[Rfam]
RNA sequence: AUGCUGCACUAAGAAGUCGUGCCCUGGGAGUAGCACACCUGUGCGCCCUGGGCACGACUUCUUAGUGCAGCAU
Numbered sequence: 001a002u003g004c005u006g007c008a009c010u011a012a013g014a015a016g017u018c019g020u021g022c023c024c025u026g027g028g029a030g031u032a033g034c035a036c037a038c039c040u041g042u043g044c045g046c047c048c049u050g051g052g053c054a055c056g057a058c059u060u061c062u063u064a065g066u067g068c069a070g071c072a073u
Base pairs, nucleotide, nucleotide: 001073002072003071004070005069006068007067010064011063012062013061014060015059016058017057018056019055024050026048027047028046030044
RNA: mir-252 microRNA precursor family
Organism: Eschrichtius robustus